[Rfam]
RNA sequence: AUGACCUUACUUGAACAGGAUCUGUUCUAUAGGUUCGUACCUCUGUAUCCUUGAUUUCUAAGGAGACAGGAAACCAUGUCUGGACGAUGAACUCAGGCUGCUUGGCUAGAGCGUGAUUAACAGCACCAUGGGUCAGUUCUCUGGCUCGUUGUGCAGUAGAUGAUCGUUCUAGGCAUGACCCUGGAUGGCCUGGCAGUUGUCUGACGGACU
Numbered sequence: 001a002u003g004a005c006c007u008u009a010c011u012u013g014a015a016c017a018g019g020a021u022c023u024g025u026u027c028u029a030u031a032g033g034u035u036c037g038u039a040c041c042u043c044u045g046u047a048u049c050c051u052u053g054a055u056u057u058c059u060a061a062g063g064a065g066a067c068a069g070g071a072a073a074c075c076a077u078g079u080c081u082g083g084a085c086g087a088u089g090a091a092c093u094c095a096g097g098c099u100g101c102u103u104g105g106c107u108a109g110a111g112c113g114u115g116a117u118u119a120a121c122a123g124c125a126c127c128a129u130g131g132g133u134c135a136g137u138u139c140u141c142u143g144g145c146u147c148g149u150u151g152u153g154c155a156g157u158a159g160a161u162g163a164u165c166g167u168u169c170u171a172g173g174c175a176u177g178a179c180c181c182u183g184g185a186u187g188g189c190c191u192g193g194c195a196g197u198u199g200u201c202u203g204a205c206g207g208a209c210u
Stems, first nucleotide, its partner, number of pairs: 001038002003035001005033003013027006043069004048064006078209005097197006104190005110168004120157002123154004128149009170183004

A member of the RNA family "Plant small nucleolar RNA U3" from Salvia splendens, 210 nucleotides long. The match comes from Rfam's covariance-model search (175 bits). The source organism's lineage runs through Eukaryota, Pentapetalae, Nepetoideae, Salviinae and core Calosphace. The family's consensus secondary structure is taken from published work. Its Rfam clan is "U3 clan". The family has 24 seed sequences and 3,759 matches in Rfam 15.1. Small nucleolar RNAs (snoRNAs) are involved in the processing and modification of rRNA in the nucleolus.